A member of the RNA family "Small nucleolar RNA SNORA12" from Antrostomus carolinensis, 140 nucleotides long. Rfam classes the family as an H/ACA-box small nucleolar RNA. The family has 23 seed sequences and 571 matches in Rfam 15.1.

RNA sequence: UAUUGUGGUGUUUUCUGUAUUUGGCAGCUCUGCAAUGGUAUCAGAGCGGCCUUAAACUACCACAGAGAUCAAAAAGGAGAAGGCUGUGCUGAAAACUUUCAAGCUUUCAGUUUUCAGCUUUUUGUUCAGCUCCUACAGAA
Number, nucleotide and partner (000 for none) at each position: 001u000002a000003u000004u000005g063006u062007g061008g060009u059010g058011u000012u000013u000014u000015c000016u000017g000018u000019a000020u000021u000022u000023g051024g050025c049026a000027g047028c046029u045030c044031u043032g042033c000034a000035a000036u000037g000038g000039u000040a000041u000042c032043a031044g030045a029046g028047c027048g000049g025050c024051c023052u000053u000054a000055a000056a000057c000058u010059a009060c008061c007062a006063c005064a000065g000066a000067g000068a000069u000070c000071a000072a000073a000074a000075a000076g133077g132078a131079g130080a000081a000082g000083g000084c000085u000086g000087u000088g000089c000090u000091g000092a000093a000094a000095a000096c000097u000098u000099u000100c124101a123102a122103g121104c000105u000106u000107u000108c000109a000110g000111u000112u000113u000114u000115c000116a000117g000118c000119u000120u000121u103122u102123u101124g100125u000126u000127c000128a000129g000130c079131u078132c077133c076134u000135a000136c000137a000138g000139a000140a000
The organism belongs to Antrostomus, within Eukaryota. Rfam's curators write: U108 belongs to the H/ACA family of snoRNAs. The sequence is predicted to guide the pseudouridylation of the U372 residue in the 28S rRNA subunit.